[Rfam]
RNA sequence: AAGUUCAUAAAGCUUCGAGAUUUUCCGGCUAAGGGGUACUAUGCCGGUUGAUCCUGAGUAUAACUCACAGGGCGGCGACGGAAACGUUGCCGCCUCCCAUGACGCAGGGGAUAUCCUGCCAGGAAAGAAGCCUGUAAUUUUGCUGA
Numbered sequence: 001a002a003g004u005u006c007a008u009a010a011a012g013c014u015u016c017g018a019g020a021u022u023u024u025c026c027g028g029c030u031a032a033g034g035g036g037u038a039c040u041a042u043g044c045c046g047g048u049u050g051a052u053c054c055u056g057a058g059u060a061u062a063a064c065u066c067a068c069a070g071g072g073c074g075g076c077g078a079c080g081g082a083a084a085c086g087u088u089g090c091c092g093c094c095u096c097c098c099a100u101g102a103c104g105c106a107g108g109g110g111a112u113a114u115c116c117u118g119c120c121a122g123g124a125a126a127g128a129a130g131c132c133u134g135u136a137a138u139u140u141u142g143c144u145g146a
Stems, first nucleotide, its partner, number of pairs: 003140001012131005019053004025047005033040002055067005070095011096123002
Shown here is a 146-nucleotide RNA from Sporobacter termitidis, a member of the family "Molybdenum/Tungsten riboswitch aptamer (Moco RNA motif)". Pairs were carried over by alignment from the consensus structure, which is taken from published work. NCBI's taxonomy places the organism under Bacteria, Clostridia, Oscillospiraceae, Sporobacter, Sporobacter termitidis.